Shown here is a 75-nucleotide RNA from Dinothrombium tinctorium, a member of the family "mir-2 microRNA precursor family".
Lineage of the source: Eukaryota > Opisthokonta > Anystina > Trombidiidae > Dinothrombium.
For this family Rfam cites "microRNAs: tiny regulators with great potential" (Ambros, Cell, 2001).

RNA sequence: CUAGUCAUCAAAGGGGCUUUGAUGUGUUCUUUUUUUUACGGUUCUUCAUAUCACAGCCAGCUUUGAUGAGUCGAA
Numbered sequence: 001c002u003a004g005u006c007a008u009c010a011a012a013g014g015g016g017c018u019u020u021g022a023u024g025u026g027u028u029c030u031u032u033u034u035u036u037u038a039c040g041g042u043u044c045u046u047c048a049u050a051u052c053a054c055a056g057c058c059a060g061c062u063u064u065g066a067u068g069a070g071u072c073g074a075a
Stems, first nucleotide, its partner, number of pairs: 005069009015058004020053003025050003
Pairs were carried over by alignment from the consensus structure, which was predicted with PFOLD. Rfam links the family to the GO terms miRNA-mediated post-transcriptional gene silencing and RISC complex. The match comes from Rfam's covariance-model search (59 bits).